[Rfam]
Description: Rfam assigns this 45-nucleotide RNA sequence from Neisseria shayeganii to the family "PreQ1 (pre queuosine) riboswitch aptamer". Its family is annotated with queuosine biosynthetic process in the Gene Ontology. Rfam 15.1 lists 873 matches to the family in 692 species. Pairs were carried over by alignment from the consensus structure. This family is a bacterial riboswitch that binds to the metabolite preQ1, an intermediate in the biosynthesis of the modified nucleoside queuosine from GTP. One example of this riboswitch is located in the leader of the Bacillus subtilis ykvJKLM (queCDEF) operon which encodes four genes necessary for queuosine production. PreQ1 binding to the riboswitch aptamer is thought to induce premature transcription termination within the leader to down-regulate expression of these genes.
RNA sequence: UCUACCGUGGUUCGCAAACCUCCCACGUAAAAAAACUAGGACACU
Numbered sequence: 001u002c003u004a005c006c007g008u009g010g011u012u013c014g015c016a017a018a019c020c021u022c023c024c025a026c027g028u029a030a031a032a033a034a035a036c037u038a039g040g041a042c043a044c045u
Stems, first nucleotide, its partner, number of pairs: 006027005016037001